[Rfam]
RNA sequence: UCGGCCAUGUGUAACUGGCGUAGCGUGGGGAACCACGAGGGAGCACAUGGAUCAUAACAGCCGCACGCCUGGGCAAAAGUA
Numbered sequence: 001u002c003g004g005c006c007a008u009g010u011g012u013a014a015c016u017g018g019c020g021u022a023g024c025g026u027g028g029g030g031a032a033c034c035a036c037g038a039g040g041g042a043g044c045a046c047a048u049g050g051a052u053c054a055u056a057a058c059a060g061c062c063g064c065a066c067g068c069c070u071g072g073g074c075a076a077a078a079g080u081a
Stems, first nucleotide, its partner, number of pairs: 003052001005050008015040002017069005025036004060074003
RNA: ZMP/ZTP riboswitch aptamer (pfl RNA motif)
Organism: Paenibacillus albilobatus